[Rfam]
Rfam assigns this 128-nucleotide RNA sequence from Protea cynaroides to the family "Small nucleolar RNA snoR74".
RNA sequence: GAAAAAGCAGGUGCUCGUUGCCUUCGUGAGCGAGCCUCUCGUAAACUUCAGGGAAAUCAUUUACAUCGUUAUUGGGUGAACCUCUGUUAUUUUUGGUAACAGAAGGUUCAGUAAAUGAUGGUACAUAA
Numbered sequence: 001g002a003a004a005a006a007g008c009a010g011g012u013g014c015u016c017g018u019u020g021c022c023u024u025c026g027u028g029a030g031c032g033a034g035c036c037u038c039u040c041g042u043a044a045a046c047u048u049c050a051g052g053g054a055a056a057u058c059a060u061u062u063a064c065a066u067c068g069u070u071a072u073u074g075g076g077u078g079a080a081c082c083u084c085u086g087u088u089a090u091u092u093u094u095g096g097u098a099a100c101a102g103a104a105g106g107u108u109c110a111g112u113a114a115a116u117g118a119u120g121g122u123a124c125a126u127a128a
Base pairs, nucleotide, nucleotide: 005048006047007046011037014034015033016032017031064120065119066118067117068116069115070114077110078109079108080107081106082105083104

Pairs were carried over by alignment from the consensus structure, which was predicted with WAR.
NCBI's taxonomy places the organism under Eukaryota, Spermatophyta, Magnoliopsida, Mesangiospermae, Protea.
It scores 105 bits against the family's covariance model.
On this family, see Marker et al., Curr Biol 2002: "Experimental RNomics: identification of 140 candidates for small non-messenger RNAs in the plant Arabidopsis thaliana".
The family's RNA type in Rfam is H/ACA-box small nucleolar RNA.